Shown here is a 126-nucleotide RNA from Helianthus annuus, a member of the family "Small nucleolar RNA snoR77". Rfam 15.1 lists 649 matches to the family in 221 species. A reference for the family is Marker et al. (2002), "Experimental RNomics: identification of 140 candidates for small non-messenger RNAs in the plant Arabidopsis thaliana", Curr Biol.
RNA sequence: AGGCAACCACCUUUUGUAAUCGCUCAAAUGGUAGGUGUUGUUCUGUUCGCAAAUAAAUUUCUUUUGCUCUUCAGAUUUGUUGAGAUUUAUGGUCAAUGAAGCUGGUCUAGUAAGCAAAUGUACAUU
Numbered sequence: 001a002g003g004c005a006a007c008c009a010c011c012u013u014u015u016g017u018a019a020u021c022g023c024u025c026a027a028a029u030g031g032u033a034g035g036u037g038u039u040g041u042u043c044u045g046u047u048c049g050c051a052a053a054u055a056a057a058u059u060u061c062u063u064u065u066g067c068u069c070u071u072c073a074g075a076u077u078u079g080u081u082g083a084g085a086u087u088u089a090u091g092g093u094c095a096a097u098g099a100a101g102c103u104g105g106u107c108u109a110g111u112a113a114g115c116a117a118a119u120g121u122a123c124a125u126u
Stems, first nucleotide, its partner, number of pairs: 002039004007035002009032003013028004061120001063118001066115003073108005079102003084094003